[Rfam]
RNA sequence: AAAGUUUAGAGUCAAGAAAACUAAUUAAAAAACAGGGAGUUUCCGAAAAUCCAUAAGAGUAGGAUAAAC
Numbered sequence: 001a002a003a004g005u006u007u008a009g010a011g012u013c014a015a016g017a018a019a020a021c022u023a024a025u026u027a028a029a030a031a032a033c034a035g036g037g038a039g040u041u042u043c044c045g046a047a048a049a050u051c052c053a054u055a056a057g058a059g060u061a062g063g064a065u066a067a068a069c
Base pairs, nucleotide, nucleotide: 006024007023008022009021036052037051038050043063044062

The family of this 69-nucleotide sequence is "DUF805 RNA".
The base pairs follow the family's consensus structure, which is taken from published work.
It is annotated as a cis-regulatory element.
The family has 46 seed sequences and 281 matches in Rfam 15.1.
The family is grouped with related families in Rfam's "DUF805 clan".